[Rfam]
RNA sequence: GACGUGCUCCGGGGUCGGUGAGAAUCCGAACCGGCGGUGAUAGUCCGCGAGCUGUGGCAUCAGCAUCCGAAAGGAUGCCGCCACGGCUGACCCGGUGGAAAUCCGGGACCGACGGUGAUGCGAUGGGAGACCAUCGCUAGUCCGGAUGGGAGGCAGCACGAG
Numbered sequence: 001g002a003c004g005u006g007c008u009c010c011g012g013g014g015u016c017g018g019u020g021a022g023a024a025u026c027c028g029a030a031c032c033g034g035c036g037g038u039g040a041u042a043g044u045c046c047g048c049g050a051g052c053u054g055u056g057g058c059a060u061c062a063g064c065a066u067c068c069g070a071a072a073g074g075a076u077g078c079c080g081c082c083a084c085g086g087c088u089g090a091c092c093c094g095g096u097g098g099a100a101a102u103c104c105g106g107g108a109c110c111g112a113c114g115g116u117g118a119u120g121c122g123a124u125g126g127g128a129g130a131c132c133a134u135c136g137c138u139a140g141u142c143c144g145g146a147u148g149g150g151a152g153g154c155a156g157c158a159c160g161a162g
Stems, first nucleotide, its partner, number of pairs: 003160006009153002016028003032111002034048004043109002051087008091107005113144003
Shown here is a 162-nucleotide RNA sequence from Microbacterium sp. SLBN-146, a member of the family "FMN riboswitch aptamer (RFN element)". The organism belongs to Microbacterium, within Bacteria. The match comes from Rfam's covariance-model search (76 bits).